[Rfam]
RNA sequence: CCCCUUUCAUCGCGUCGCCGUAGUUCCUAUAUAUAUUCCGUCGAGCAAUCGACUAUGACGCUAGAGAGCGCUGCGGAAUAAGCGUUGUGGACCCGGGGGCAGUACCCGGCGCCUCCACCAAUUCGCCGGGAUCGGAACCGACCAUCUUCCAGAUCCCGGCCUCAUGGGGGCGAACCAGGAUCGACACGCGUAGUAAAGGCAGAUGUUCGCGUUCGGCAUGGUACCGCCGAUAUCGGGCCAAAUCGCUAAAUGCGAACGAUAACGACGAGAUGGUUGCUGUCGCUGCGUAAGCAGUCUCGGUAACGAAGUCGGAAUUCCUAGGGGACUCAUCCUCUCCUAGGUGGGGCUUGGGGGACCCAGCAACAGAACCCCCCACU
Numbered sequence: 001c002c003c004c005u006u007u008c009a010u011c012g013c014g015u016c017g018c019c020g021u022a023g024u025u026c027c028u029a030u031a032u033a034u035a036u037u038c039c040g041u042c043g044a045g046c047a048a049u050c051g052a053c054u055a056u057g058a059c060g061c062u063a064g065a066g067a068g069c070g071c072u073g074c075g076g077a078a079u080a081a082g083c084g085u086u087g088u089g090g091a092c093c094c095g096g097g098g099g100c101a102g103u104a105c106c107c108g109g110c111g112c113c114u115c116c117a118c119c120a121a122u123u124c125g126c127c128g129g130g131a132u133c134g135g136a137a138c139c140g141a142c143c144a145u146c147u148u149c150c151a152g153a154u155c156c157c158g159g160c161c162u163c164a165u166g167g168g169g170g171c172g173a174a175c176c177a178g179g180a181u182c183g184a185c186a187c188g189c190g191u192a193g194u195a196a197a198g199g200c201a202g203a204u205g206u207u208c209g210c211g212u213u214c215g216g217c218a219u220g221g222u223a224c225c226g227c228c229g230a231u232a233u234c235g236g237g238c239c240a241a242a243u244c245g246c247u248a249a250a251u252g253c254g255a256a257c258g259a260u261a262a263c264g265a266c267g268a269g270a271u272g273g274u275u276g277c278u279g280u281c282g283c284u285g286c287g288u289a290a291g292c293a294g295u296c297u298c299g300g301u302a303a304c305g306a307a308g309u310c311g312g313a314a315u316u317c318c319u320a321g322g323g324g325a326c327u328c329a330u331c332c333u334c335u336c337c338u339a340g341g342u343g344g345g346g347c348u349u350g351g352g353g354g355a356c357c358c359a360g361c362a363a364c365a366g367a368a369c370c371c372c373c374c375a376c377u
Stems, first nucleotide, its partner, number of pairs: 040053005057213005068206003071202004083190003087187003093109005110172007214229004219240003224236002344358003350374005

This 377-nucleotide sequence from Pacificispira spongiicola belongs to the Rfam family "Alphaproteobacteria transfer-messenger RNA". The source organism's lineage runs through Bacteria, Pseudomonadati, Pseudomonadota, Aestuariispiraceae and Pacificispira. Its family is annotated with RNA catabolic process in the Gene Ontology. The literature on the family includes a 2010 paper in RNA Biol by Mao et al., "Variations on the tmRNA gene".